Small nucleolar RNA snoR109: a 105-nucleotide sequence from Hevea brasiliensis. Rfam 15.1 lists 680 matches to the family in 220 species.
RNA sequence: CGGCUGUAGCUAUAUUCAUUAUGGCUGAGAAGUUAACUGGCCGGUUGUUAUGAGGUUUCUUUGAGAUCUCCAUUGACAUAUCUGCUUACCGAGCUUCUCAUAUUA
Numbered sequence: 001c002g003g004c005u006g007u008a009g010c011u012a013u014a015u016u017c018a019u020u021a022u023g024g025c026u027g028a029g030a031a032g033u034u035a036a037c038u039g040g041c042c043g044g045u046u047g048u049u050a051u052g053a054g055g056u057u058u059c060u061u062u063g064a065g066a067u068c069u070c071c072a073u074u075g076a077c078a079u080a081u082c083u084g085c086u087u088a089c090c091g092a093g094c095u096u097c098u099c100a101u102a103u104u105a
Base pairs, nucleotide, nucleotide: 027099028098029097030096031095032094033093034092039086040085041084043082044081045080047077048076049075050074